[Rfam]
RNA: Small nucleolar RNA SNORA27
Nucleotides: 133
Stems, first nucleotide, its partner, number of pairs: 034061002037058002042053004071126006084111001086109006093102001
Number, partner (000 for none) and nucleotide at each position: 001000c002000a003000g004000a005000g006000c007000c008000c009000c010000u011000u012000c013000a014000c015000u016000u017000u018000g019000c020000c021000a022000u023000u024000u025000a026000g027000a028000u029000c030000u031000g032000u033000a034061u035060g036000u037058c038057u039000a040000u041000u042053u043052u044051g045050g046000u047000u048000a049000u050045u051044c052043a053042a054000g055000a056000g057038g058037g059000c060035u061034a062000a063000a064000u065000g066000a067000a068000a069000c070000c071126u072125c073124c074123u075122c076121u077000u078000a079000a080000a081000a082000c083000c084111c085000a086109a087108g088107u089106c090105a091104g092000u093102u094000c095000u096000u097000a098000a099000u100000a101000u102093g103000u104091u105090u106089g107088g108087c109086u110000u111084g112000u113000g114000u115000c116000c117000u118000g119000u120000c121076a122075g123074a124073g125072g126071a127000g128000a129000c130000a131000g132000c133000a